The family of this 94-nucleotide RNA sequence from Helianthus annuus is "Small nucleolar RNA Z159/U59".
The family's RNA type in Rfam is C/D-box small nucleolar RNA.
Lineage of the source: Eukaryota > Embryophyta > Tracheophyta > asterids > Helianthus.
A search with the family's covariance model found it, with a score of 66 bits.
Rfam links the family to the GO terms RNA processing and nucleolus.
[Rfam]
RNA sequence: UCCUCUGUUGAUGAUUCAAAUAAAAACUUUCGUUCUUCCGAGGAUGAUAUCCGUCUAUGCGGAAACGAUUAUUGGAGACCUGAACUGAAGAGGC
Number, nucleotide and partner (000 for none) at each position: 001u000002c000003c092004u091005c090006u089007g000008u000009u000010g000011a000012u000013g000014a000015u000016u000017c000018a000019a000020a000021u000022a000023a000024a000025a000026a000027c000028u000029u000030u000031c000032g000033u000034u000035c000036u000037u000038c000039c000040g000041a000042g000043g000044a000045u000046g000047a000048u000049a000050u000051c000052c000053g000054u000055c000056u000057a000058u000059g000060c000061g000062g000063a000064a000065a000066c000067g000068a000069u000070u000071a000072u000073u000074g000075g000076a000077g000078a000079c000080c000081u000082g000083a000084a000085c000086u000087g000088a000089a006090g005091a004092g003093g000094c000
For this family Rfam cites "The high diversity of snoRNAs in plants: identification and comparative study of 120 snoRNA genes from Oryza sativa" (Chen et al., Nucleic Acids Res, 2003).